Background:
Burkholderia sRNA 7: a 156-nucleotide sequence from Burkholderia sp. WAC0059. Rfam describes the family as follows. Did not show any change in expression in iron-depletion and hydrogen peroxide (oxidative stress) treatment. Constitutively expressed. Possibly targets the GTPase, ObgE. A search with the family's covariance model found it, with a score of 103 bits. The literature on the family includes a 2017 paper in Microbiology by Ghosh et al., "Identification of novel small RNAs in Burkholderia cenocepacia KC-01 expressed under iron limitation and oxidative stress conditions". The organism belongs to Burkholderia, within Bacteria.
RNA sequence: GUAUUCUCUCGCGCAUGAACCGCAUCCUGCCCGCCCUUCGACGUCGUCGCUCGCCCAACCCUUAGGGGGGCCUGGCUACGUCACGGACGCGCGCUUCUUCACCCGGAUGCGCAUGCAGUUCGAAUCGCGAAAGCCACGGACCACCGUGGCUUUUUC
Numbered sequence: 001g002u003a004u005u006c007u008c009u010c011g012c013g014c015a016u017g018a019a020c021c022g023c024a025u026c027c028u029g030c031c032c033g034c035c036c037u038u039c040g041a042c043g044u045c046g047u048c049g050c051u052c053g054c055c056c057a058a059c060c061c062u063u064a065g066g067g068g069g070g071c072c073u074g075g076c077u078a079c080g081u082c083a084c085g086g087a088c089g090c091g092c093g094c095u096u097c098u099u100c101a102c103c104c105g106g107a108u109g110c111g112c113a114u115g116c117a118g119u120u121c122g123a124a125u126c127g128c129g130a131a132a133g134c135c136a137c138g139g140a141c142c143a144c145c146g147u148g149g150c151u152u153u154u155u156c
Base pairs, nucleotide, nucleotide: 007123008122011094012093013092014091020089031086032085033084039080040079041077043076044075045074049071050070054066130153131152132151133150134149135148136147137146138145139144